[Rfam]
RNA sequence: AUGAUGGUAGCGGGAGAGAUUACCGCCGAGAUUGACAGGUAACGCCGAAGGAGUAAGCCUUUCAAGGUGAAUCUCUCAGGCAAAAGGACCUUUACCGGACG
Numbered sequence: 001a002u003g004a005u006g007g008u009a010g011c012g013g014g015a016g017a018g019a020u021u022a023c024c025g026c027c028g029a030g031a032u033u034g035a036c037a038g039g040u041a042a043c044g045c046c047g048a049a050g051g052a053g054u055a056a057g058c059c060u061u062u063c064a065a066g067g068u069g070a071a072u073c074u075c076u077c078a079g080g081c082a083a084a085a086g087g088a089c090c091u092u093u094a095c096c097g098g099a100c101g
Base pairs, nucleotide, nucleotide: 006096007095008094009093010092012090013089020042021041022040023039044081045080046079047077048076051075052074053073057068058067
This 101-nucleotide RNA sequence from Paenibacillus sp. JCM 10914 belongs to the Rfam family "Glycine riboswitch aptamer".
About the family: This family represents the bacterial glycine riboswitch.
NCBI's taxonomy places the organism under Bacteria, Bacillati, Bacilli, Caryophanales, Paenibacillus.
The pairing is the family consensus, mapped onto this sequence.
A search with the family's covariance model found it, with a score of 69 bits.